RNA sequence: AAAGCAGGCUGCAAUUACAGUGCUUCAUUCUGUGGGAGCACUGCCAUGUCCCUGCUGAGAGCAAUUCUGUUACUUAGGAAUCGAUCUCACCUGUUCUGGUGAAAUCAGACUCCCUUUUUAGCAGUGACAGGU
Numbered sequence: 001a002a003a004g005c006a007g008g009c010u011g012c013a014a015u016u017a018c019a020g021u022g023c024u025u026c027a028u029u030c031u032g033u034g035g036g037a038g039c040a041c042u043g044c045c046a047u048g049u050c051c052c053u054g055c056u057g058a059g060a061g062c063a064a065u066u067c068u069g070u071u072a073c074u075u076a077g078g079a080a081u082c083g084a085u086c087u088c089a090c091c092u093g094u095u096c097u098g099g100u101g102a103a104a105u106c107a108g109a110c111u112c113c114c115u116u117u118u119u120a121g122c123a124g125u126g127a128c129a130g131g132u
Stems, first nucleotide, its partner, number of pairs: 003056006018043009067126001068123005083106003087102005